[Rfam]
This 54-nucleotide sequence from Catagonus wagneri belongs to the Rfam family "Small nucleolar RNA SNORD66". Rfam links the family to the GO terms RNA processing and nucleolus. By type it is a C/D-box small nucleolar RNA. NCBI's taxonomy places the organism under Eukaryota, Metazoa, Eutheria, Boreoeutheria, Catagonus. The family's consensus secondary structure was predicted with RNAalifold. It scores 33 bits against the family's covariance model.

RNA sequence: UUCCUGUGAUGAUUAAUUUUAUGUGUCAACUUGACUGGGCCAUGGAGUGUGGAG
Dot-bracket structure: ((((..............................................))))